[Rfam]
Nucleotides: 126
Base pairs, nucleotide, nucleotide: 003058004057005056006055007054008053015045016044017043018042019041020040022037023036025035026034069119070118071117072116073115074114075113077112078111079110080109085106086105087104088103089102090101091100092099093098
Number, partner (000 for none) and nucleotide at each position: 001000u002000u003058u004057c005056c006055c007054a008053u009000u010000u011000u012000u013000u014000u015045g016044c017043u018042g019041c020040u021000g022037u023036a024000a025035u026034c027000c028000c029000u030000u031000g032000g033000u034026g035025a036023u037022a038000u039000g040020a041019g042018c043017a044016g045015u046000u047000a048000u049000a050000c051000g052000c053008g054007u055006g056005g057004g058003a059000u060000a061000a062000a063000g064000u065000a066000a067000a068000a069119u070118a071117g072116g073115c074114c075113a076000u077112u078111g079110u080109a081000a082000a083000u084000u085106g086105a087104g088103g089102u090101g091100a092099a093098a094000u095000a096000c097000a098093u099092u100091u101090c102089a103088u104087c105086u106085u107000u108000u109080u110079g111078c112077a113075u114074g115073g116072u117071c118070u119069a120000g121000a122000c123000a124000u125000u126000g
The record is a 126-nucleotide RNA from Dipodomys ordii, which matches "Small nucleolar RNA SNORA20" in Rfam. Taxonomically the source falls in Dipodomys (Eukaryota, Eumetazoa, Bilateria, Chordata). Rfam describes the family as follows. ACA20 is a member of the H/ACA class of snoRNA that guide the sites of modification of uridines to pseudouridines.